[Rfam]
Shown here is a 75-nucleotide sequence from Embleya scabrispora, a member of the family "ASpks TB sRNA".
The family has 77 seed sequences and 9,052 matches in Rfam 15.1.
NCBI's taxonomy places the organism under Bacteria, Bacillati, Actinomycetes, Kitasatosporales, Embleya.
The base pairs follow the family's consensus structure, which is taken from published work.
It is annotated as an antisense RNA.
RNA sequence: CUUCACCGAGCCCAGCCACAGCGGGCGAUCGGCCGGGCGGCCCUUGCCGUAGGUGGCCAGGAGCGCCUGCGCCUC
Numbered sequence: 001c002u003u004c005a006c007c008g009a010g011c012c013c014a015g016c017c018a019c020a021g022c023g024g025g026c027g028a029u030c031g032g033c034c035g036g037g038c039g040g041c042c043c044u045u046g047c048c049g050u051a052g053g054u055g056g057c058c059a060g061g062a063g064c065g066c067c068u069g070c071g072c073c074u075c
Stems, first nucleotide, its partner, number of pairs: 016024002032070002038065002043060002047056003